[Rfam]
RNA sequence: AAGUAUUUUCAACCAGAGAGAAUCCUUAGCGUUGUGGUGAAUGCGGCUCAGCGCACGCGGGUUAAGGUUGAGGCUGACAGUCGACCUUCUGUGGAUACCCACCCGCCUGGUGUGCAACCUUCGCCAGGCACCGGGAGGCACCCGGCACCACAACUUUAUGCUGUGUGUAGUCCUCGCGGUACCAGUUUGUACACUUGCUUCCGGCUGGUACCGCUCUUUUUAC
Numbered sequence: 001a002a003g004u005a006u007u008u009u010c011a012a013c014c015a016g017a018g019a020g021a022a023u024c025c026u027u028a029g030c031g032u033u034g035u036g037g038u039g040a041a042u043g044c045g046g047c048u049c050a051g052c053g054c055a056c057g058c059g060g061g062u063u064a065a066g067g068u069u070g071a072g073g074c075u076g077a078c079a080g081u082c083g084a085c086c087u088u089c090u091g092u093g094g095a096u097a098c099c100c101a102c103c104c105g106c107c108u109g110g111u112g113u114g115c116a117a118c119c120u121u122c123g124c125c126a127g128g129c130a131c132c133g134g135g136a137g138g139c140a141c142c143c144g145g146c147a148c149c150a151c152a153a154c155u156u157u158a159u160g161c162u163g164u165g166u167g168u169a170g171u172c173c174u175c176g177c178g179g180u181a182c183c184a185g186u187u188u189g190u191a192c193a194c195u196u197g198c199u200u201c202c203g204g205c206u207g208g209u210a211c212c213g214c215u216c217u218u219u220u221u222a223c
Stems, first nucleotide, its partner, number of pairs: 014163003031154002034151006044059002048055001064088003091104001093102001105129004110124003131145005167223004176214012